[Rfam]
RNA sequence: AACGACCGGCCGGACACGACUGUGCCCGGCCCACAAGUGGAGGCUCCGAUCUCCCACCUGACCGCCUCACGGGGCGGCGGGUCUCCGGUCAGGCGGCCACCAUCGUUCCGUACGGACGAUGGAGUCGCCCGAAAGCGCGCCCCGCGGUCAUCGCGAUGGUGCUCCGGUAGUGCAAGGAGCCCCGCAUGUGAUCGUCCGGGGCAUUUUUU
Numbered sequence: 001a002a003c004g005a006c007c008g009g010c011c012g013g014a015c016a017c018g019a020c021u022g023u024g025c026c027c028g029g030c031c032c033a034c035a036a037g038u039g040g041a042g043g044c045u046c047c048g049a050u051c052u053c054c055c056a057c058c059u060g061a062c063c064g065c066c067u068c069a070c071g072g073g074g075c076g077g078c079g080g081g082u083c084u085c086c087g088g089u090c091a092g093g094c095g096g097c098c099a100c101c102a103u104c105g106u107u108c109c110g111u112a113c114g115g116a117c118g119a120u121g122g123a124g125u126c127g128c129c130c131g132a133a134a135g136c137g138c139g140c141c142c143c144g145c146g147g148u149c150a151u152c153g154c155g156a157u158g159g160u161g162c163u164c165c166g167g168u169a170g171u172g173c174a175a176g177g178a179g180c181c182c183c184g185c186a187u188g189u190g191a192u193c194g195u196c197c198g199g200g201g202c203a204u205u206u207u208u209u
Stems, first nucleotide, its partner, number of pairs: 004090006012027002028083005034060002037057004041052002062077006092129003096126001100122008139202006145194003152190003157184003161180005
RNA: Streptomyces RNA 1601
Organism: Streptomyces shenzhenensis